[Rfam]
RNA sequence: AUCGGUGCAGGAGAUGGCAUUCCUCCUGUCCCCACCGGGGCAAACCGCCGCCUUGGCUGAUGAUGCCUGCUGACCC
Dot-bracket structure: .........[[[[..((((((.]]]]....................(((.....)))....)))))).........
Numbered sequence: 001a002u003c004g005g006u007g008c009a010g011g012a013g014a015u016g017g018c019a020u021u022c023c024u025c026c027u028g029u030c031c032c033c034a035c036c037g038g039g040g041c042a043a044a045c046c047g048c049c050g051c052c053u054u055g056g057c058u059g060a061u062g063a064u065g066c067c068u069g070c071u072g073a074c075c076c
Stems, first nucleotide, its partner, number of pairs: 010026004016067006047057003
About this RNA:
The family of this 76-nucleotide RNA sequence from Lysobacter sp. Root96 is "Fluoride riboswitch aptamer (crcB RNA motif)".